[Rfam]
RNA sequence: UCAUAAAGCAUUGCACCCAGAGUCUGGUUUACCAGACAUUGAACCUGGAGCUUUUGUUUUUAAAUAAACUUUGUAU
Numbered sequence: 001u002c003a004u005a006a007a008g009c010a011u012u013g014c015a016c017c018c019a020g021a022g023u024c025u026g027g028u029u030u031a032c033c034a035g036a037c038a039u040u041g042a043a044c045c046u047g048g049a050g051c052u053u054u055u056g057u058u059u060u061u062a063a064a065u066a067a068a069c070u071u072u073g074u075a076u
Base pairs, nucleotide, nucleotide: 005054006053007052008051009050017048018047019046020045022037023036024035025034026033

Shown here is a 76-nucleotide RNA from Merluccius polli, a member of the family "U1A polyadenylation inhibition element (PIE)". Pairs were carried over by alignment from the consensus structure, which is taken from published work. Rfam links the family to the GO term regulation of mRNA polyadenylation. The literature on the family includes a 2004 paper in Biochemistry by Clerte and Hall, "Global and Local Dynamics of the U1A Polyadenylation Inhibition Element (PIE) RNA and PIE RNA-U1A Complexes". NCBI's taxonomy places the organism under Eukaryota, Deuterostomia, Ctenosquamata, Acanthomorphata, Merluccius. Rfam describes the family as follows. This family represents the U1A polyadenylation inhibition element (PIE). PIE is a regulatory RNA which is responsible for the regulation of the length of the polyA tail of the U1A pre-mRNA. The PIE is located in the U1A mRNA 3' UTR. PIE adopts a U-shaped structure, with binding sites for a single U1A protein at each bend and when complexed with the two proteins it blocks activity of poly(A) polymerase (PAP), and inhibits its activity.